The record is a 183-nucleotide RNA sequence from Rhodanobacter thiooxydans, which matches "FMN riboswitch aptamer (RFN element)" in Rfam. The organism belongs to Rhodanobacter, within Bacteria. The family's consensus secondary structure is taken from published work.
[Rfam]
RNA sequence: UAGCGUCUUCAGGGCGGGGUGAAAUUCCCCACCGGCGGUAGGCCCCGGUUUUUACGGUUUAGGGGCGAGCCCGCGAGCGCUCACGGCGACCGCCGUGAGGUCAGCAGAUCCGGUCCGAUGCCGGAGCCGACGGUUGGAAGCGGGCGACUGCUUCCUUACAGUCCGGAUAAAGAGAAGACGGCA
Numbered sequence: 001u002a003g004c005g006u007c008u009u010c011a012g013g014g015c016g017g018g019g020u021g022a023a024a025u026u027c028c029c030c031a032c033c034g035g036c037g038g039u040a041g042g043c044c045c046c047g048g049u050u051u052u053u054a055c056g057g058u059u060u061a062g063g064g065g066c067g068a069g070c071c072c073g074c075g076a077g078c079g080c081u082c083a084c085g086g087c088g089a090c091c092g093c094c095g096u097g098a099g100g101u102c103a104g105c106a107g108a109u110c111c112g113g114u115c116c117g118a119u120g121c122c123g124g125a126g127c128c129g130a131c132g133g134u135u136g137g138a139a140g141c142g143g144g145c146g147a148c149u150g151c152u153u154c155c156u157u158a159c160a161g162u163c164c165g166g167a168u169a170a171a172g173a174g175a176a177g178a179c180g181g182c183a
Stems, first nucleotide, its partner, number of pairs: 004180007017029003033129002035074004069127002077105002109125005131165003